[Rfam]
RNA sequence: CGUUGCUGCCCUUCUUGGGCGUUUCCUCCCUAAACUUCGGGCCGUUGGCAACAACGGCCUUUUUUCUUGUCCGGA
Numbered sequence: 001c002g003u004u005g006c007u008g009c010c011c012u013u014c015u016u017g018g019g020c021g022u023u024u025c026c027u028c029c030c031u032a033a034a035c036u037u038c039g040g041g042c043c044g045u046u047g048g049c050a051a052c053a054a055c056g057g058c059c060u061u062u063u064u065u066c067u068u069g070u071c072c073g074g075a
Stems, first nucleotide, its partner, number of pairs: 008020004039060009
RNA: Makes More Granules Regulator RNA (mmgR)